[Rfam]
RNA sequence: GAAGCUUCCAAUCUCCCUCAAAGGCUUCCAAUAUUCCAGGCCAUGGAAAUGUUGGAGACCUUUGGAGGGGAUUGAAGGCUU
Numbered sequence: 001g002a003a004g005c006u007u008c009c010a011a012u013c014u015c016c017c018u019c020a021a022a023g024g025c026u027u028c029c030a031a032u033a034u035u036c037c038a039g040g041c042c043a044u045g046g047a048a049a050u051g052u053u054g055g056a057g058a059c060c061u062u063u064g065g066a067g068g069g070g071a072u073u074g075a076a077g078g079c080u081u
Base pairs, nucleotide, nucleotide: 003080004079005078006077009074010073011072012071013070014069015068016067018065019064021062022061023060024059026057027056028055029054030053031052032051033050
RNA: MIR477 microRNA precursor family
Organism: Manihot esculenta